This 173-nucleotide RNA sequence from Paenibacillus sp. FSL H8-0548 belongs to the Rfam family "Group II catalytic intron D1-D4-3". Its family is annotated with Group II intron splicing in the Gene Ontology.
RNA sequence: UCCGCCGUGAGGCAGAAUCUGAAGGAAGCCGGCGGCAAAUCUCCGGUCUGAGGAACACGAACUUAAUAGAAGGCUAGCGUACGUUGGGUGAGGUUGCAUAACAAAUCAAAGCCCAUACUCCCGAAGGCGUACGAGAGUAAAUGGAGCAGAUAGAUGGAGAGGAAGAUAACGUU
Numbered sequence: 001u002c003c004g005c006c007g008u009g010a011g012g013c014a015g016a017a018u019c020u021g022a023a024g025g026a027a028g029c030c031g032g033c034g035g036c037a038a039a040u041c042u043c044c045g046g047u048c049u050g051a052g053g054a055a056c057a058c059g060a061a062c063u064u065a066a067u068a069g070a071a072g073g074c075u076a077g078c079g080u081a082c083g084u085u086g087g088g089u090g091a092g093g094u095u096g097c098a099u100a101a102c103a104a105a106u107c108a109a110a111g112c113c114c115a116u117a118c119u120c121c122c123g124a125a126g127g128c129g130u131a132c133g134a135g136a137g138u139a140a141a142u143g144g145a146g147c148a149g150a151u152a153g154a155u156g157g158a159g160a161g162g163a164a165g166a167u168a169a170c171g172u173u
Stems, first nucleotide, its partner, number of pairs: 001016002004013003028173001030171002036165001040160006046151005062146003066142002073138003078133006086114004092107004

About this RNA:
Group II introns are found in rRNA, tRNA and mRNA of organelles in fungi, plants and protists, and also in mRNA in bacteria.